[Rfam]
The record is a 185-nucleotide RNA sequence from Dechloromonas aromatica, which matches "permuted transfer-messenger RNA" in Rfam. The family's consensus secondary structure is taken from published work. Bacterial tmRNA, also known as 10Sa RNA or SsrA, is named for its dual tRNA and mRNA-like properties. Its role is to liberate the mRNA from a stalled ribosome. To accomplish this part of the tmRNA is used as a reading frame that ends in a translation stop signal. The broken mRNA is replaced in the ribosome by the tmRNA and translation of the tmRNA leads to addition of a proteolysis tag to the incomplete protein enabling recognition by a protease. Recently a number of permuted tmRNA genes have been found encoded in two parts. tmRNAs have been identified in eubacteria and some chloroplasts but are absent from archaeal and eukaryote nuclear genomes. Rfam's curators put it in the seed alignment. Rfam classes the family as a non-coding RNA gene.

RNA sequence: GGUUGUAAUUCCGGUGAUUCGGAAGCGUUUUGGACAGGGGUUCAAUUCCCCUCACCUCCACCACAGCGGGGGUGUACUGGCUUCGACAGGGCGUGAAAGUUGAGCAGGCAACCCGAAAGGCGACGGACGUAAUCCGAGCAAACAAUAUAAACGCAAAUGAUGAGCGUUAUGCAGUAGCCGCCUAA
Numbered sequence: 001g002g003u004u005g006u007a008a009u010u011c012c013g014g015u016g017a018u019u020c021g022g023a024a025g026c027g028u029u030u031u032g033g034a035c036a037g038g039g040g041u042u043c044a045a046u047u048c049c050c051c052u053c054a055c056c057u058c059c060a061c062c063a064c065a066g067c068g069g070g071g072g073u074g075u076a077c078u079g080g081c082u083u084c085g086a087c088a089g090g091g092c093g094u095g096a097a098a099g100u101u102g103a104g105c106a107g108g109c110a111a112c113c114c115g116a117a118a119g120g121c122g123a124c125g126g127a128c129g130u131a132a133u134c135c136g137a138g139c140a141a142a143c144a145a146u147a148u149a150a151a152c153g154c155a156a157a158u159g160a161u162g163a164g165c166g167u168u169a170u171g172c173a174g175u176a177g178c179c180g181c182c183u184a185a
Stems, first nucleotide, its partner, number of pairs: 001113005015102003026093003030089003036052005053074007114129002